[Rfam]
RNA sequence: AGGCCAAAUGAUGAAUAUGGAAUUAAAAUCUCACGACGGUCGUCUGAGCCAUUUUGCGUGGCAAUAUUGAUGUGAUAAUCCAUUUACUGAUGGUU
Numbered sequence: 001a002g003g004c005c006a007a008a009u010g011a012u013g014a015a016u017a018u019g020g021a022a023u024u025a026a027a028a029u030c031u032c033a034c035g036a037c038g039g040u041c042g043u044c045u046g047a048g049c050c051a052u053u054u055u056g057c058g059u060g061g062c063a064a065u066a067u068u069g070a071u072g073u074g075a076u077a078a079u080c081c082a083u084u085u086a087c088u089g090a091u092g093g094u095u
Stems, first nucleotide, its partner, number of pairs: 001095002004092001050060003